The record is an 80-nucleotide RNA from Albula goreensis, which matches "mir-219 microRNA precursor family" in Rfam. A search with the family's covariance model found it, with a score of 79 bits.
RNA sequence: CCAGCAGCUGAUUGUCCAAACGCAAUUCUUGUGCAAUUUCUAGUAAAACCCAAGAAUUGUGCCUGGACAUCUGUUGCUGG
Numbered sequence: 001c002c003a004g005c006a007g008c009u010g011a012u013u014g015u016c017c018a019a020a021c022g023c024a025a026u027u028c029u030u031g032u033g034c035a036a037u038u039u040c041u042a043g044u045a046a047a048a049c050c051c052a053a054g055a056a057u058u059g060u061g062c063c064u065g066g067a068c069a070u071c072u073g074u075u076g077c078u079g080g
Base pairs, nucleotide, nucleotide: 002079003078004077005076006075007074010071011070012069014068015067016066017065018064021061022060023059024058025057026056027055028054029053030052031051
Dot-bracket structure: .((((((..(((.(((((..(((((((((((...................)))))))))))..))))))))..)))))).
The organism belongs to Albula, within Eukaryota.